[Rfam]
RNA sequence: ACGUGCUCCGGGGUCGGUGUGAAUCCGAACCGGCGGUGAUAGUCCGCGAACGCCUGUUCUCAGGCGCCGAUCCGGUGAAAUUCCGGAACCGACGGUGAUGCGAGCGAAAGCUCGCUAGUCCGGAAGAGAGGCAGCACAA
Number, nucleotide and partner (000 for none) at each position: 001a000002c000003g137004u136005g135006c134007u133008c130009c000010g000011g000012g000013g000014u000015c027016g026017g025018u000019g000020u000021g000022a000023a000024u000025c017026c016027g015028a000029a000030c000031c091032g090033g047034c046035g045036g044037u000038g000039a000040u000041a000042g089043u088044c036045c035046g034047c033048g000049a000050a000051c066052g065053c000054c000055u000056g000057u000058u000059c000060u000061c000062a000063g000064g000065c052066g051067c000068c000069g000070a000071u087072c086073c085074g084075g083076u000077g000078a000079a000080a000081u000082u000083c075084c074085g073086g072087a071088a043089c042090c032091g031092a000093c122094g121095g120096u000097g000098a000099u000100g000101c000102g000103a000104g000105c000106g000107a000108a000109a000110g000111c000112u000113c000114g000115c000116u000117a000118g000119u000120c095121c094122g093123g000124a000125a000126g000127a000128g000129a000130g008131g000132c000133a007134g006135c005136a004137c003138a000139a000